[Rfam]
RNA: bantam microRNA precursor family
Organism: Lottia gigantea
RNA sequence: CUUACUAGAUGAAACUGGUUUUCAUAGUGGUUUCGUAAAUAUUUUAAUUGUGAGAUCACUGUGAAAACUAAUUUUGUCGA
Numbered sequence: 001c002u003u004a005c006u007a008g009a010u011g012a013a014a015c016u017g018g019u020u021u022u023c024a025u026a027g028u029g030g031u032u033u034c035g036u037a038a039a040u041a042u043u044u045u046a047a048u049u050g051u052g053a054g055a056u057c058a059c060u061g062u063g064a065a066a067a068c069u070a071a072u073u074u075u076g077u078c079g080a
Stems, first nucleotide, its partner, number of pairs: 009077006016070010028058006